This 176-nucleotide sequence from Virgibacillus necropolis belongs to the Rfam family "glmS glucosamine-6-phosphate activated ribozyme aptamer".
A search with the family's covariance model found it, with a score of 108 bits.
By type it is a riboswitch.
[Rfam]
RNA sequence: AUAGCAUCAAAAGCGCCUGAACUAUUCACAGAGACGACUUAGCAAUGAAUAGUUGACGAGGAGGAGGAUUAUCGAUUUUUUCGGCGGAUACCUCCCGAUUGCACAUCUCAAUCGUUAUACUUUAUUCAUAAAACAAUGAGGCAACUUGUUGGCCAAUUGAAUAAGGCAAGAUGACC
Numbered sequence: 001a002u003a004g005c006a007u008c009a010a011a012a013g014c015g016c017c018u019g020a021a022c023u024a025u026u027c028a029c030a031g032a033g034a035c036g037a038c039u040u041a042g043c044a045a046u047g048a049a050u051a052g053u054u055g056a057c058g059a060g061g062a063g064g065a066g067g068a069u070u071a072u073c074g075a076u077u078u079u080u081u082c083g084g085c086g087g088a089u090a091c092c093u094c095c096c097g098a099u100u101g102c103a104c105a106u107c108u109c110a111a112u113c114g115u116u117a118u119a120c121u122u123u124a125u126u127c128a129u130a131a132a133a134c135a136a137u138g139a140g141g142c143a144a145c146u147u148g149u150u151g152g153c154c155a156a157u158u159g160a161a162u163a164a165g166g167c168a169a170g171a172u173g174a175c176c
Stems, first nucleotide, its partner, number of pairs: 020054008063095005072084004096114006120166007134151007
Dot-bracket structure: ...................((((((((...................))))))))........(((((....((((.....))))......)))))((((((.......)))))).....(((((((.......(((((((....)))))))........)))))))..........